This 339-nucleotide RNA from Pneumocystis sp. 'macacae' belongs to the Rfam family "Group I catalytic intron". The match comes from Rfam's covariance-model search (95 bits). NCBI's taxonomy places the organism under Eukaryota, Opisthokonta, Ascomycota, Pneumocystomycetes, Pneumocystis.
RNA sequence: AAAGCGUUUUGCUAGUAGCUCAGGUUUUUUGUGACUGACUGCGACACUGUCAAAUUGCGGGGAAGCCCUAAAGCCUUGUUCACCAAGCAGAUGCCAGAAAUGCAUUUGUGGCCAGGUUAAUAGCCUUGGGUAAGGUAACAGUAAUAAGGAUAUUUGAAAUGCAUUGUCAAUGGGCUAUCCGCAGCCAAAUCCUAAAGGGGGAGGGAGUCCGUUCUGACUUCAUCCUUCUAUGGAUGCAGUUCAACGACUAGACGGCAGUGGGUGCUGCCUUGGUUUUUGUGGAUUCACUUGCCAAGGGUAGUGCUUAAGGUAUAGUCUGUCCUUUUCUGAAAGGAAAAG
Numbered sequence: 001a002a003a004g005c006g007u008u009u010u011g012c013u014a015g016u017a018g019c020u021c022a023g024g025u026u027u028u029u030u031g032u033g034a035c036u037g038a039c040u041g042c043g044a045c046a047c048u049g050u051c052a053a054a055u056u057g058c059g060g061g062g063a064a065g066c067c068c069u070a071a072a073g074c075c076u077u078g079u080u081c082a083c084c085a086a087g088c089a090g091a092u093g094c095c096a097g098a099a100a101u102g103c104a105u106u107u108g109u110g111g112c113c114a115g116g117u118u119a120a121u122a123g124c125c126u127u128g129g130g131u132a133a134g135g136u137a138a139c140a141g142u143a144a145u146a147a148g149g150a151u152a153u154u155u156g157a158a159a160u161g162c163a164u165u166g167u168c169a170a171u172g173g174g175c176u177a178u179c180c181g182c183a184g185c186c187a188a189a190u191c192c193u194a195a196a197g198g199g200g201g202a203g204g205g206a207g208u209c210c211g212u213u214c215u216g217a218c219u220u221c222a223u224c225c226u227u228c229u230a231u232g233g234a235u236g237c238a239g240u241u242c243a244a245c246g247a248c249u250a251g252a253c254g255g256c257a258g259u260g261g262g263u264g265c266u267g268c269c270u271u272g273g274u275u276u277u278u279g280u281g282g283a284u285u286c287a288c289u290u291g292c293c294a295a296g297g298g299u300a301g302u303g304c305u306u307a308a309g310g311u312a313u314a315g316u317c318u319g320u321c322c323u324u325u326u327c328u329g330a331a332a333g334g335a336a337a338a339g
Base pairs, nucleotide, nucleotide: 005024007023008022011019012018013017028037045260046259047258048257049256051254056183057182058181059180060179061178066174067173068172184240185239189235190234191233192232197228198227199226200225201224244318246317247316248315249314250313262304263303264302265301266300267299268298269297270296324337325336326335327334328333
Source information:
Group I catalytic introns are large self-splicing ribozymes. They catalyse their own excision from mRNA, tRNA and rRNA precursors in a wide range of organisms. The core secondary structure consists of 9 paired regions (P1-P9).